Small nucleolar RNA SNORA71: a 128-nucleotide sequence from Labrus bergylta. The match comes from Rfam's covariance-model search (103 bits). Rfam links the family to the GO terms nucleolus and RNA processing. The base pairs follow the family's consensus structure, which was predicted with PFOLD. From the family's description: The members of this family belong to the H/ACA class of snoRNAs which bind a number of proteins (including dyskerin, Gar1p and Nop10p) to form snoRNP complexes. This class of snoRNAs are thought to guide the sites of modification of uridines to pseudouridines by forming direct base pairing interactions with substrate RNAs. This family includes U71 (SNORA71), ACA39 (SNORA39) and ACA60 (SNORA60). U71 and ACA60 are predicted to guide the pseudouridylation of U406 and U1004 in 18S rRNA respectively. There is currently no target RNA identified for ACA39.
[Rfam]
RNA sequence: UCCUGUAUCGAAAGUGGUCAUGGCGUCCUCGUCGUCAGGUCAUUGAUAGUACAGGAAGAGCAAACCUGCGAGCCUUUCCCGUGUUUGCAGGAUGACCCGUUCCUGUCAGACCCUGGCGCUCUCAGACA
Number, nucleotide and partner (000 for none) at each position: 001u056002c055003c054004u053005g052006u051007a050008u049009c000010g000011a000012a000013a044014g043015u042016g041017g040018u039019c038020a000021u000022g036023g035024c034025g033026u000027c000028c000029u000030c000031g000032u000033c025034g024035u023036c022037a000038g019039g018040u017041c016042a015043u014044u013045g000046a000047u000048a000049g008050u007051a006052c005053a004054g003055g002056a001057a000058g000059a000060g000061c000062a000063a000064a000065c125066c000067u124068g123069c000070g121071a120072g119073c118074c000075u000076u000077u000078c000079c000080c000081g000082u000083g111084u110085u109086u108087g107088c105089a104090g103091g102092a101093u000094g000095a000096c000097c000098c000099g000100u000101u092102c091103c090104u089105g088106u000107c087108a086109g085110a084111c083112c000113c000114u000115g000116g000117c000118g073119c072120u071121c070122u000123c068124a067125g065126a000127c000128a000